[Rfam]
This 143-nucleotide sequence from Triticum aestivum belongs to the Rfam family "mir-399 microRNA precursor family". A reference for the family is Jones-Rhoades and Bartel (2004), "Computational Identification of Plant MicroRNAs and Their Targets, Including a Stress-Induced miRNA", Mol Cell.
RNA sequence: GUGUGAAUCACAGGGCGCUUCUCCCUUGGCACGGUGACAUGCAUGUACGGAUGAUGGUGUGGUAGCCUGGUCCCUGGUGAGUGUGCGGUGCAUGCAAGUAGUUAGCCAUUCGUGCCAAAGGAGAAUUGCCCUGCCAUUCGCCU
Numbered sequence: 001g002u003g004u005g006a007a008u009c010a011c012a013g014g015g016c017g018c019u020u021c022u023c024c025c026u027u028g029g030c031a032c033g034g035u036g037a038c039a040u041g042c043a044u045g046u047a048c049g050g051a052u053g054a055u056g057g058u059g060u061g062g063u064a065g066c067c068u069g070g071u072c073c074c075u076g077g078u079g080a081g082u083g084u085g086c087g088g089u090g091c092a093u094g095c096a097a098g099u100a101g102u103u104a105g106c107c108a109u110u111c112g113u114g115c116c117a118a119a120g121g122a123g124a125a126u127u128g129c130c131c132u133g134c135c136a137u138u139c140g141c142c143u
Stems, first nucleotide, its partner, number of pairs: 005139004011133007019125001021123004027117008